RNA sequence: GGCCACCUGCGGCGCCGACAAGGGGCGAGGGGGCUAGCACAUAGGUCGGGGCGACCCGACCGUCUGUAAACGGAAGACAGAAA
Numbered sequence: 001g002g003c004c005a006c007c008u009g010c011g012g013c014g015c016c017g018a019c020a021a022g023g024g025g026c027g028a029g030g031g032g033g034c035u036a037g038c039a040c041a042u043a044g045g046u047c048g049g050g051g052c053g054a055c056c057c058g059a060c061c062g063u064c065u066g067u068a069a070a071c072g073g074a075a076g077a078c079a080g081a082a083a
Stems, first nucleotide, its partner, number of pairs: 001035004006031003044061007
Record summary
L2-Alphaproteobacteria ribosomal protein leader: an 83-nucleotide sequence from Citreicella sp. 357. It is one of the family's seed sequences. The source organism's lineage runs through Bacteria, Pseudomonadota, Alphaproteobacteria, Roseobacteraceae and Citreicella.